[Rfam]
The family of this 164-nucleotide sequence from Owenia fusiformis is "U1 spliceosomal RNA". Rfam links the family to the GO terms pre-mRNA 5'-splice site binding, U1 snRNP and mRNA 5'-splice site recognition. The literature on the family includes a 1997 paper in Nucleic Acids Res by Zwieb, "The uRNA database". About the family: U1 is a small nuclear RNA (snRNA) component of the spliceosome (involved in pre-mRNA splicing). Its 5' end forms complementary base pairs with the 5' splice junction, thus defining the 5' donor site of an intron. There are significant differences in sequence and secondary structure between metazoan and yeast U1 snRNAs, the latter being much longer (568 nucleotides as compared to 164 nucleotides in human). Nevertheless, secondary structure predictions suggest that all U1 snRNAs share a 'common core' consisting of helices I, II, the proximal region of III, and IV. This family does not contain the larger yeast sequences. The family's consensus secondary structure is taken from published work. Taxonomically the source falls in Owenia (Eukaryota, Bilateria, Canalipalpata, Oweniida).
RNA sequence: AUACUUACCUGGCAUAGAGAACACCUUGGUCAAGAUGGAGGUUUCUCCAGUGCGAGGCCUGUCCAUUGCACAUCGGAUGGGCUGACCGCUGCGAUAACCCCAAAUGUGGGUUACUCGGAUGCGUAAUUUAUGAUAGUGGGGGACUGCGUUCGCGCUCUCCCCUG
Numbered sequence: 001a002u003a004c005u006u007a008c009c010u011g012g013c014a015u016a017g018a019g020a021a022c023a024c025c026u027u028g029g030u031c032a033a034g035a036u037g038g039a040g041g042u043u044u045c046u047c048c049a050g051u052g053c054g055a056g057g058c059c060u061g062u063c064c065a066u067u068g069c070a071c072a073u074c075g076g077a078u079g080g081g082c083u084g085a086c087c088g089c090u091g092c093g094a095u096a097a098c099c100c101c102a103a104a105u106g107u108g109g110g111u112u113a114c115u116c117g118g119a120u121g122c123g124u125a126a127u128u129u130a131u132g133a134u135a136g137u138g139g140g141g142g143a144c145u146g147c148g149u150u151c152g153c154g155c156u157c158u159c160c161c162c163u164g
Base pairs, nucleotide, nucleotide: 012122013121014120015119017047018046019045020044021043023042024041025040026039027038049090050089051088052087054086056083057082058081060079061078062077063076064075092117093116094115095113096112097111099109100108138163139162140161141160142159143158146155147154148153